The record is a 108-nucleotide sequence from Desulfobaculum xiamenense, which matches "TPP riboswitch aptamer (THI element)" in Rfam. About the family: Vitamin B(1) in its active form thiamin pyrophosphate (TPP) is an essential coenzyme that is synthesised by coupling of pyrimidine and thiazole moieties in bacteria.

[Rfam]
RNA sequence: ACCAGACGCUAGGGGGGCCUGUCCACACAGGCUGAGAGGGGAGCUCGCUCCCGACCCUUGGAACCUGAUGCGGUUCAUACCGCCGGAGGGAAGCGUCGGCCAAUGUCA
Numbered sequence: 001a002c003c004a005g006a007c008g009c010u011a012g013g014g015g016g017g018c019c020u021g022u023c024c025a026c027a028c029a030g031g032c033u034g035a036g037a038g039g040g041g042a043g044c045u046c047g048c049u050c051c052c053g054a055c056c057c058u059u060g061g062a063a064c065c066u067g068a069u070g071c072g073g074u075u076c077a078u079a080c081c082g083c084c085g086g087a088g089g090g091a092a093g094c095g096u097c098g099g100c101c102a103a104u105g106u107c108a
Base pairs, nucleotide, nucleotide: 006096007095008094009093010092011058012057013056014055016052017032018031019030020029021028039051040050041049064089065088066087070083071082072081073080
Dot-bracket structure: .....(((((((((.((((((......)))))......(((.......))))..)))).....(((...((((......))))...)))..)))))............